[Rfam]
RNA: ylbH leader
RNA sequence: AAAAAAAAAACCGCCCGGCAAUCAUACAGGGCGGGCAAGCCAAACGCGUAAUCGUUUGGCUUGCAUAAUGGGAGAGGAGAAACCGGAGGAAGAGCUUAUGGGGAAACGUAAGUCUUCUCCGCGG
Numbered sequence: 001a002a003a004a005a006a007a008a009a010a011c012c013g014c015c016c017g018g019c020a021a022u023c024a025u026a027c028a029g030g031g032c033g034g035g036c037a038a039g040c041c042a043a044a045c046g047c048g049u050a051a052u053c054g055u056u057u058g059g060c061u062u063g064c065a066u067a068a069u070g071g072g073a074g075a076g077g078a079g080a081a082a083c084c085g086g087a088g089g090a091a092g093a094g095c096u097u098a099u100g101g102g103g104a105a106a107c108g109u110a111a112g113u114c115u116u117c118u119c120c121g122c123g124g
Base pairs, nucleotide, nucleotide: 011034012033013032014031015030016029018027036071041058042057043056044055045054046053084121085120086119087118089117090116091115092114094113095112096111097110098109